[Rfam]
RNA sequence: CACAUCUACCCAGAACUAAUCACUUUGGGUAGGUGUUGCAAACGUGCAGGAACAGGUUCAGACCUACAUUGAUUGAGUCAUGACACCCUCGAAUGAACGCCAGUUCGUUGCUCUGUCAACCGAUUUUAAGCAAAGAAGUAAUCACAUAUAGCUUCGAGUGAAUCGGUUCUAAAAAGCUCUUUCAAUAUUUCCGAGGCAAACAUCAC
Numbered sequence: 001c002a003c004a005u006c007u008a009c010c011c012a013g014a015a016c017u018a019a020u021c022a023c024u025u026u027g028g029g030u031a032g033g034u035g036u037u038g039c040a041a042a043c044g045u046g047c048a049g050g051a052a053c054a055g056g057u058u059c060a061g062a063c064c065u066a067c068a069u070u071g072a073u074u075g076a077g078u079c080a081u082g083a084c085a086c087c088c089u090c091g092a093a094u095g096a097a098c099g100c101c102a103g104u105u106c107g108u109u110g111c112u113c114u115g116u117c118a119a120c121c122g123a124u125u126u127u128a129a130g131c132a133a134a135g136a137a138g139u140a141a142u143c144a145c146a147u148a149u150a151g152c153u154u155c156g157a158g159u160g161a162a163u164c165g166g167u168u169c170u171a172a173a174a175a176g177c178u179c180u181u182u183c184a185a186u187a188u189u190u191c192c193g194a195g196g197c198a199a200a201c202a203u204c205a206c
Stems, first nucleotide, its partner, number of pairs: 001046003005042001007040001010029002012026002049192004054065004068186005075179004083116002087110001090107005099197003118168009130159002135155005
Shown here is a 206-nucleotide sequence from Leptolyngbya sp. NIES-3755, a member of the family "HNH endonuclease-associated RNA and ORF (HEARO) RNA". The source organism's lineage runs through Bacteria, Bacillati, Cyanobacteriota, Leptolyngbyaceae and Leptolyngbya. The base pairs follow the family's consensus structure, which is taken from published work.